[Rfam]
RNA sequence: GGAUGAGGUAGAGGUCGCGAAGUUGAAGAGUAUGCGUGGAGAGACGUUAAAGAGCCGUCGAUGAUCCGCGCGGAAAGGCAGCUUCGCCGAAGCCCGUGCCGCUGCUCCUAUCAAGCCGCAUGGACUGGGGCCGUAUCCGAAAGGAACGGAACUGUCACGAUGCCUAAAGUCUGCCGCCGACAAUGGUCAGGCCUGCCGCUCGUGUUGCGCUAUCUUGACA
Numbered sequence: 001g002g003a004u005g006a007g008g009u010a011g012a013g014g015u016c017g018c019g020a021a022g023u024u025g026a027a028g029a030g031u032a033u034g035c036g037u038g039g040a041g042a043g044a045c046g047u048u049a050a051a052g053a054g055c056c057g058u059c060g061a062u063g064a065u066c067c068g069c070g071c072g073g074a075a076a077g078g079c080a081g082c083u084u085c086g087c088c089g090a091a092g093c094c095c096g097u098g099c100c101g102c103u104g105c106u107c108c109u110a111u112c113a114a115g116c117c118g119c120a121u122g123g124a125c126u127g128g129g130g131c132c133g134u135a136u137c138c139g140a141a142a143g144g145a146a147c148g149g150a151a152c153u154g155u156c157a158c159g160a161u162g163c164c165u166a167a168a169g170u171c172u173g174c175c176g177c178c179g180a181c182a183a184u185g186g187u188c189a190g191g192c193c194u195g196c197c198g199c200u201c202g203u204g205u206u207g208c209g210c211u212a213u214c215u216u217g218a219c220a
Stems, first nucleotide, its partner, number of pairs: 006215006017087009033072008091126002094123006101116002127153002131149004136144002156204005
RNA: Lysine riboswitch aptamer